Rfam assigns this 111-nucleotide RNA from Eubacterium ruminantium to the family "TPP riboswitch aptamer (THI element)". Pairs were carried over by alignment from the consensus structure, which is taken from published work.
RNA sequence: AACUUGAUGCAGGGGAGUUUGUUUAAACAAUCUGAGAGGAAGCUGGUAUCGCUUCGACCCUAUAACCUGAUACGGGUAAUUCCGGCGCAGGGAGUCAUACUGGUGGAUUAU
Numbered sequence: 001a002a003c004u005u006g007a008u009g010c011a012g013g014g015g016a017g018u019u020u021g022u023u024u025a026a027a028c029a030a031u032c033u034g035a036g037a038g039g040a041a042g043c044u045g046g047u048a049u050c051g052c053u054u055c056g057a058c059c060c061u062a063u064a065a066c067c068u069g070a071u072a073c074g075g076g077u078a079a080u081u082c083c084g085g086c087g088c089a090g091g092g093a094g095u096c097a098u099a100c101u102g103g104u105g106g107a108u109u110a111u
Stems, first nucleotide, its partner, number of pairs: 007098003011061004017032001019030003039055005066091004073084003
About this RNA:
The match comes from Rfam's covariance-model search (58 bits).